Shown here is a 131-nucleotide sequence from Bremia lactucae, a member of the family "U11 spliceosomal RNA". A search with the family's covariance model found it, with a score of 63 bits.
RNA sequence: AAAAAGGGCAGGCCUUCCUUUAGGCACGUGAGUGGCACUGACAUUCAUGUGGCGAAUCGAGAUCAUGAGAUUUGUCCUGCAUAAUUUCUGAACGGCCGCAGUGGAAUGGGCCUCAAUGGCUAAUUCCACCG
Numbered sequence: 001a002a003a004a005a006g007g008g009c010a011g012g013c014c015u016u017c018c019u020u021u022a023g024g025c026a027c028g029u030g031a032g033u034g035g036c037a038c039u040g041a042c043a044u045u046c047a048u049g050u051g052g053c054g055a056a057u058c059g060a061g062a063u064c065a066u067g068a069g070a071u072u073u074g075u076c077c078u079g080c081a082u083a084a085u086u087u088c089u090g091a092a093c094g095g096c097c098g099c100a101g102u103g104g105a106a107u108g109g110g111c112c113u114c115a116a117u118g119g120c121u122a123a124u125u126c127c128a129c130c131g
Stems, first nucleotide, its partner, number of pairs: 008080005013024003025051010036040001052075007099131001101129007110120003